[Rfam]
RNA sequence: CCGUGAGCUGUGUCAACCGGACACGAUGGAGACGAUGAACGCAGGGAUUUUUCCGGUUUCAUCCUGCGGCCAACGAAGCGGCAGCCGAGCGUCCCACCCAUCCGGCUU
Dot-bracket structure: .....((((.((((.....)))).(((((....((((..(((((((...............)))))))(((........))).......))))....))))).)))).
A member of the RNA family "Rhizobiales sRNA Atu_At1" from Rhizobium tibeticum, 108 nucleotides long. The family's RNA type in Rfam is small RNA. The base pairs follow the family's consensus structure, which was predicted with CMfinder. For this family Rfam cites "Deep sequencing uncovers numerous small RNAs on all four replicons of the plant pathogen Agrobacterium tumefaciens" (Wilms et al., RNA Biol, 2012).